[Rfam]
Rfam assigns this 74-nucleotide RNA sequence from Paratissierella segnis to the family "Fluoride riboswitch aptamer (crcB RNA motif)".

RNA sequence: AUUAGCAUUGGGAAUGAAGUUCUCCCUUGGCAAUAGCCUAAAUCGCUUAUUAAGCUGAUGACUUCUGCUUACAA
Numbered sequence: 001a002u003u004a005g006c007a008u009u010g011g012g013a014a015u016g017a018a019g020u021u022c023u024c025c026c027u028u029g030g031c032a033a034u035a036g037c038c039u040a041a042a043u044c045g046c047u048u049a050u051u052a053a054g055c056u057g058a059u060g061a062c063u064u065c066u067g068c069u070u071a072c073a074a
Stems, first nucleotide, its partner, number of pairs: 010026004016065006045055003